[Rfam]
RNA sequence: UGGAGAUGGCCGAGGGAUCCCGAGAACGGGCUUGACGGGCGCUGCCAACGCCGACGCAUCACGGCCUGAUACCUA
Numbered sequence: 001u002g003g004a005g006a007u008g009g010c011c012g013a014g015g016g017a018u019c020c021c022g023a024g025a026a027c028g029g030g031c032u033u034g035a036c037g038g039g040c041g042c043u044g045c046c047a048a049c050g051c052c053g054a055c056g057c058a059u060c061a062c063g064g065c066c067u068g069a070u071a072c073c074u075a
Stems, first nucleotide, its partner, number of pairs: 001075003004070001008066005015055001019030004038052004043047001
Description
This 75-nucleotide sequence from Changjiang tombus-like virus 3 belongs to the Rfam family "Necrovirus cap-independent translation element". It is annotated as a cis-regulatory element. It scores 48 bits against the family's covariance model. The source organism's lineage runs through Viruses and Riboviria.